[Rfam]
RNA sequence: UAUUUUCUCUGUUAGGUGAGGCUCCUGCGUGAACAUAGGCCACUGCCCGGAAACGUCGAAAGACGCCAAUGGGUAGAACAGGUAUUACCGGAUUAAGGUUUUAUCUAACGUGGCUGAGAUAUGUAAAAGCUCUACGUUAUGCAGUGCCAAAACUCAACGAGCGGGGAAGGUC
Numbered sequence: 001u002a003u004u005u006u007c008u009c010u011g012u013u014a015g016g017u018g019a020g021g022c023u024c025c026u027g028c029g030u031g032a033a034c035a036u037a038g039g040c041c042a043c044u045g046c047c048c049g050g051a052a053a054c055g056u057c058g059a060a061a062g063a064c065g066c067c068a069a070u071g072g073g074u075a076g077a078a079c080a081g082g083u084a085u086u087a088c089c090g091g092a093u094u095a096a097g098g099u100u101u102u103a104u105c106u107a108a109c110g111u112g113g114c115u116g117a118g119a120u121a122u123g124u125a126a127a128a129g130c131u132c133u134a135c136g137u138u139a140u141g142c143a144g145u146g147c148c149a150a151a152a153c154u155c156a157a158c159g160a161g162c163g164g165g166g167a168a169g170g171u172c
Stems, first nucleotide, its partner, number of pairs: 005168006011158002013096001015154003020148003025144008039114005045074005054065004081105004087099003116132003

A member of the RNA family "M-box riboswitch aptamer (ykoK leader)" from Allolucifera butyrica, 172 nucleotides long. Pairs were carried over by alignment from the consensus structure. NCBI's taxonomy places the organism under Bacteria, Bacillota, Negativicutes, Veillonellaceae, Allolucifera. A search with the family's covariance model found it, with a score of 158 bits. About the family: M-box riboswitch, also know as ykoK leader is described as a metaloregulatory RNA that sense divalent metals and function as a genetic control element of genes related to divalent metal transport in bacteria. It was first reported upstream of the B.subtilis ykoK gene and genes with related functions in other bacteria.